Background:
This 98-nucleotide RNA from Devosia enhydra belongs to the Rfam family "TPP riboswitch aptamer (THI element)".
RNA sequence: UGCGUCUCGCUGGGGUGCGCCGCAGGUUGCGGCGCUGAGAAAAACCCAUGGAACCUGAACCAGGUCAUGCUGGCGGAGGAAGUUCGAGAUGGCGGAGC
Numbered sequence: 001u002g003c004g005u006c007u008c009g010c011u012g013g014g015g016u017g018c019g020c021c022g023c024a025g026g027u028u029g030c031g032g033c034g035c036u037g038a039g040a041a042a043a044a045c046c047c048a049u050g051g052a053a054c055c056u057g058a059a060c061c062a063g064g065u066c067a068u069g070c071u072g073g074c075g076g077a078g079g080a081a082g083u084u085c086g087a088g089a090u091g092g093c094g095g096a097g098c
Base pairs, nucleotide, nucleotide: 006086009083010082011048012047013046014045016042017035018034019033020032021031022030023029054079055078056077060073061072062071063070
A search with the family's covariance model found it, with a score of 60 bits.